[Rfam]
wcaG RNA: a 98-nucleotide RNA sequence. It is annotated as a cis-regulatory element.
RNA sequence: AUUGUUUUCUUGCUUUUCUCAAAAGCAAGUGGUGCGGAUGGGACUCUCUCCCGCCUGGUUUCCAAUUUCCAGUCAAAGAAUUGGUGGCGAGCCUGAGU
Numbered sequence: 001a002u003u004g005u006u007u008u009c010u011u012g013c014u015u016u017u018c019u020c021a022a023a024a025g026c027a028a029g030u031g032g033u034g035c036g037g038a039u040g041g042g043a044c045u046c047u048c049u050c051c052c053g054c055c056u057g058g059u060u061u062c063c064a065a066u067u068u069c070c071a072g073u074c075a076a077a078g079a080a081u082u083g084g085u086g087g088c089g090a091g092c093c094u095g096a097g098u
Stems, first nucleotide, its partner, number of pairs: 009029007039053005055072004062084006